[Rfam]
RNA sequence: AGCUGCGUGCCCAAAUUGCAUACUAUUAUUUCGCCUUUUACUAAAGAAUACCGUGGGUUGAGCACAAUACGCAGCCCACGUCAAUAUUUGACGGCUUUUCAUUCUGUUGGGAAA
Numbered sequence: 001a002g003c004u005g006c007g008u009g010c011c012c013a014a015a016u017u018g019c020a021u022a023c024u025a026u027u028a029u030u031u032c033g034c035c036u037u038u039u040a041c042u043a044a045a046g047a048a049u050a051c052c053g054u055g056g057g058u059u060g061a062g063c064a065c066a067a068u069a070c071g072c073a074g075c076c077c078a079c080g081u082c083a084a085u086a087u088u089u090g091a092c093g094g095c096u097u098u099u100c101a102u103u104c105u106g107u108u109g110g111g112a113a114a
Stems, first nucleotide, its partner, number of pairs: 003074004008064003012060003016056003024050004029045003096113005
RNA: U5 spliceosomal RNA